[Rfam]
The family of this 97-nucleotide sequence is "skipping-rope RNA".
RNA sequence: AUUCUUUGAGGUGGUAAAUUUCGCGUCUACCACACGCCGCCGGUACAGACAGGGGAAACCCGAGAGAUGCAGGGGAACGGCACGCCUGCCAAAGAAU
Numbered sequence: 001a002u003u004c005u006u007u008g009a010g011g012u013g014g015u016a017a018a019u020u021u022c023g024c025g026u027c028u029a030c031c032a033c034a035c036g037c038c039g040c041c042g043g044u045a046c047a048g049a050c051a052g053g054g055g056a057a058a059c060c061c062g063a064g065a066g067a068u069g070c071a072g073g074g075g076a077a078c079g080g081c082a083c084g085c086c087u088g089c090c091a092a093a094g095a096a097u
Stems, first nucleotide, its partner, number of pairs: 001097008011033005023083001025081003035064001036044003069089005